Group II catalytic intron D1-D4-3: a 172-nucleotide sequence from Bacillus aquiflavi. Pairs were carried over by alignment from the consensus structure. Taxonomically the source falls in Bacillus (Bacteria, Bacillati, Caryophanales, Bacillaceae). Rfam links the family to the GO term Group II intron splicing. The match comes from Rfam's covariance-model search (107 bits).
RNA sequence: GGCAUCGUAAGGCGGAAUCUGAAGGAAGACGAAGGUAAAUCCCGAACUGACGAUCAGAAACUGCAUACAAGGCUGACUUGGAAUGGACGAGUCUGCCAAACAUGACAAAGUCCGAUACUGCACGAGUUCCAUACAAUAAAUACAGCAGUUACAUGGGAGGAAGGUUAUAGCU
Numbered sequence: 001g002g003c004a005u006c007g008u009a010a011g012g013c014g015g016a017a018u019c020u021g022a023a024g025g026a027a028g029a030c031g032a033a034g035g036u037a038a039a040u041c042c043c044g045a046a047c048u049g050a051c052g053a054u055c056a057g058a059a060a061c062u063g064c065a066u067a068c069a070a071g072g073c074u075g076a077c078u079u080g081g082a083a084u085g086g087a088c089g090a091g092u093c094u095g096c097c098a099a100a101c102a103u104g105a106c107a108a109a110g111u112c113c114g115a116u117a118c119u120g121c122a123c124g125a126g127u128u129c130c131a132u133a134c135a136a137u138a139a140a141u142a143c144a145g146c147a148g149u150u151a152c153a154u155g156g157g158a159g160g161a162a163g164g165u166u167a168u169a170g171c172u
Stems, first nucleotide, its partner, number of pairs: 003014001005012002028172001030170001032168001035165002040158005045150005061145003065141002072137001074135001079131005085113004091106003